The family of this 109-nucleotide RNA from Thermaerobacter marianensis is "TPP riboswitch aptamer (THI element)".
[Rfam]
Nucleotides: 109
Stems, first nucleotide, its partner, number of pairs: 006097005011059004016053001017033005040052005065090003071084004
Number, partner (000 for none) and nucleotide at each position: 001000g002000u003000a004000g005000c006097a007096c008095c009094g010093u011059g012058g013057g014056g015000g016053u017033g018032c019031u020030g021029g022000c023000g024000u025000c026000a027000c028000g029021c030020c031019g032018g033017c034000u035000g036000a037000g038000a039000c040052g041051a042050g043049c044048c045000g046000c047000g048044g049043g050042c051041u052040c053016g054000a055000a056014c057013c058012c059011c060000u061000c062000g063000a064000a065090c066089c067088u068000g069000a070000c071084g072083u073082g074081g075000g076000u077000a078000a079000u080000g081074c082073c083072a084071c085000c086000g087000g088067a089066g090065g091000g092000a093010a094009c095008g096007g097006u098000g099000c100000g101000g102000u103000c104000c105000c106000g107000c108000c109000u